[Rfam]
RNA: mir-30 microRNA precursor family
RNA sequence: UCAGUUCAUGUAAACAUCCUACACUCAGCUGUAAUACAUGAAUUGGCUGGGAGGUGGAUGUUUGCUUCAACUGA
Numbered sequence: 001u002c003a004g005u006u007c008a009u010g011u012a013a014a015c016a017u018c019c020u021a022c023a024c025u026c027a028g029c030u031g032u033a034a035u036a037c038a039u040g041a042a043u044u045g046g047c048u049g050g051g052a053g054g055u056g057g058a059u060g061u062u063u064g065c066u067u068c069a070a071c072u073g074a
Stems, first nucleotide, its partner, number of pairs: 002073005008067001010065010022053001024051007